[Rfam]
A member of the RNA family "MIR807 microRNA precursor family" from Oryza glumipatula, 176 nucleotides long. The base pairs follow the family's consensus structure, which was predicted with WAR. It scores 169 bits against the family's covariance model. Its family is annotated with miRNA-mediated post-transcriptional gene silencing and RISC complex in the Gene Ontology. Rfam 15.1 lists 1,514 matches to the family in 13 species. A reference for the family is Luo et al. (2006), "Rice embryogenic calli express a unique set of microRNAs, suggesting regulatory roles of microRNAs in plant post-embryogenic development", FEBS Lett.
RNA sequence: AACCACACUAUCAAUGAAUGGAUGCACUCGUGAUAUGACGUGGUUAUUCCACUUAGAACAAGGACGUGGCAUCCUAUUACCAGCUAUCGCACGAAAUUAAUAGGAUGCCACAUCCUUAUCCUAGGUGGAACAACCACAUCAUCUUAUGGACGAAUCCAUUCAUUGAUAGCGUGGUG
Numbered sequence: 001a002a003c004c005a006c007a008c009u010a011u012c013a014a015u016g017a018a019u020g021g022a023u024g025c026a027c028u029c030g031u032g033a034u035a036u037g038a039c040g041u042g043g044u045u046a047u048u049c050c051a052c053u054u055a056g057a058a059c060a061a062g063g064a065c066g067u068g069g070c071a072u073c074c075u076a077u078u079a080c081c082a083g084c085u086a087u088c089g090c091a092c093g094a095a096a097u098u099a100a101u102a103g104g105a106u107g108c109c110a111c112a113u114c115c116u117u118a119u120c121c122u123a124g125g126u127g128g129a130a131c132a133a134c135c136a137c138a139u140c141a142u143c144u145u146a147u148g149g150a151c152g153a154a155u156c157c158a159u160u161c162a163u164u165g166a167u168a169g170c171g172u173g174g175u176g
Stems, first nucleotide, its partner, number of pairs: 002175005009168007017160003021156003025152001028149001030147004035142004041136005047130002051126002054123002058119001063114002069108011086097002